[Rfam]
RNA sequence: GGCCUCCCUCUGCAGGGCGAUCAAUUGUGGGGUUCCAAGAUCGAUGGCUCCACAGAGGGAGGCC
Numbered sequence: 001g002g003c004c005u006c007c008c009u010c011u012g013c014a015g016g017g018c019g020a021u022c023a024a025u026u027g028u029g030g031g032g033u034u035c036c037a038a039g040a041u042c043g044a045u046g047g048c049u050c051c052a053c054a055g056a057g058g059g060a061g062g063c064c
Stems, first nucleotide, its partner, number of pairs: 001064012015050004020045003024041003028037003